[Rfam]
RNA sequence: GUGUUGGCUCAGUCGUGUGGUUACUUCGUAUUGAAUAGGUUCAAAAUUUGUCUGUCACACAAGUCCUUGUAGGUUCGAAUCCUAUAAUAGCCACUGACGCCGUCCAAUACUUUU
Numbered sequence: 001g002u003g004u005u006g007g008c009u010c011a012g013u014c015g016u017g018u019g020g021u022u023a024c025u026u027c028g029u030a031u032u033g034a035a036u037a038g039g040u041u042c043a044a045a046a047u048u049u050g051u052c053u054g055u056c057a058c059a060c061a062a063g064u065c066c067u068u069g070u071a072g073g074u075u076c077g078a079a080u081c082c083u084a085u086a087a088u089a090g091c092c093a094c095u096g097a098c099g100c101c102g103u104c105c106a107a108u109a110c111u112u113u114u
Stems, first nucleotide, its partner, number of pairs: 002109006012098004017094004025079004
A member of the RNA family "Vault RNA" from Mizuhopecten yessoensis, 114 nucleotides long. Taxonomically the source falls in Mizuhopecten (Eukaryota, Metazoa, Eumetazoa, Pectinoidea). About the family: This family of RNAs are found as part of the enigmatic vault ribonucleoprotein complex. The complex consists of a major vault protein (MVP), two minor vault proteins (VPARP and TEP1), and several small untranslated RNA molecules. It has been suggested that the vault complex is involved in drug resistance. The match comes from Rfam's covariance-model search (53 bits). The family's consensus secondary structure is taken from published work. It is annotated as a non-coding RNA gene. The family has 73 seed sequences and 2,873 matches in Rfam 15.1.